RNA sequence: CUCAUCACAACAAAACCAGAUCUGUGUCCAGCAGUCCUGAUCCACCAGAGUAUUCGUACUCUGGCUGUGUUUCGGUUGUCAUUGCUGGACAUCUCGACGAUACAUGGAGCCAUCACGGAGUUUUUCUUUUUCUCUUCUCAUGGUGUCAAUUUCCGGUCGACAGAUCUCAGAGGGAAUCUCAGCAGCCCGGUUUUCUUUUAGUUUCAUUAAUAAUAGAUUAACAUUCUACCUUGAGCUCCCUUCUUCUUUGCGGGUUGGUGAGCUCGGUGAGAUGGCCGGGUGUCUGUUGUGGGCGUCAUAUUCCACCUCCCUUUACCGAUUAUGGCCGUCGGCUGAUGAGGUUAGGGAAAAACCAUGACUUGCCAACAUCA
Number, nucleotide and partner (000 for none) at each position: 001c000002u000003c000004a000005u000006c000007a000008c000009a000010a000011c000012a000013a000014a000015a000016c000017c000018a167019g166020a165021u164022c163023u162024g161025u160026g090027u089028c088029c087030a086031g085032c000033a083034g082035u081036c078037c075038u074039g073040a072041u000042c069043c000044a066045c064046c063047a062048g061049a000050g059051u058052a057053u000054u000055c000056g000057u052058a051059c050060u000061c048062u047063g046064g045065c000066u044067g000068u000069g042070u000071u000072u040073c039074g038075g037076u000077u000078g036079u000080c000081a035082u034083u033084g000085c031086u030087g029088g028089a027090c026091a000092u000093c000094u000095c000096g000097a000098c159099g158100a157101u156102a000103c000104a000105u148106g147107g146108a000109g144110c143111c142112a141113u140114c000115a000116c000117g000118g000119a000120g000121u000122u000123u000124u000125u000126c000127u000128u000129u000130u000131u000132c000133u000134c000135u000136u000137c000138u000139c000140a113141u112142g111143g110144u109145g000146u107147c106148a105149a000150u000151u000152u000153c000154c000155g000156g101157u100158c099159g098160a025161c024162a023163g022164a021165u020166c019167u018168c000169a000170g000171a000172g000173g000174g000175a000176a000177u000178c000179u000180c286181a285182g000183c000184a000185g283186c280187c279188c278189g277190g276191u000192u000193u000194u000195c267196u266197u000198u000199u000200a264201g263202u262203u261204u260205c258206a000207u000208u000209a000210a000211u000212a000213a000214u000215a000216g000217a000218u000219u000220a000221a000222c000223a000224u000225u000226c000227u000228a000229c000230c000231u000232u000233g000234a000235g000236c000237u000238c000239c000240c000241u000242u000243c000244u000245u000246c000247u000248u000249u000250g000251c000252g000253g000254g000255u000256u000257g000258g205259u000260g204261a203262g202263c201264u200265c000266g196267g195268u000269g000270a000271g000272a000273u000274g000275g000276c190277c189278g188279g187280g186281u000282g000283u185284c000285u181286g180287u000288u000289g000290u000291g000292g364293g363294c362295g359296u358297c357298a356299u355300a000301u000302u000303c000304c000305a000306c000307c000308u348309c347310c346311c345312u344313u000314u000315a342316c341317c340318g000319a000320u000321u000322a000323u000324g334325g333326c332327c331328g000329u000330c000331g327332g326333c325334u324335g000336a000337u000338g000339a000340g317341g316342u315343u000344a312345g311346g310347g309348a308349a000350a000351a000352a000353c000354c000355a299356u298357g297358a296359c295360u000361u000362g294363c293364c292365a000366a000367c000368a000369u000370c000371a000
Background: This 371-nucleotide RNA sequence from Paracoccidioides lutzii belongs to the Rfam family "A. fumigatus sRNA Afu_309". It scores 216 bits against the family's covariance model. NCBI's taxonomy places the organism under Eukaryota, Fungi, leotiomyceta, Eurotiomycetidae, Paracoccidioides.